[Rfam]
RNA: BsrC
RNA sequence: UGCUUCUAAAACAACAAAAGCCCUGCCUCUCUUUCGUCCUUGCGGCUCCGAUGACCGCUCCAGUGUGAAUCAGAAAAUUUCAAACGUU
Numbered sequence: 001u002g003c004u005u006c007u008a009a010a011a012c013a014a015c016a017a018a019a020g021c022c023c024u025g026c027c028u029c030u031c032u033u034u035c036g037u038c039c040u041u042g043c044g045g046c047u048c049c050g051a052u053g054a055c056c057g058c059u060c061c062a063g064u065g066u067g068a069a070u071c072a073g074a075a076a077a078u079u080u081c082a083a084a085c086g087u088u
Stems, first nucleotide, its partner, number of pairs: 034068003039063002042058004047053001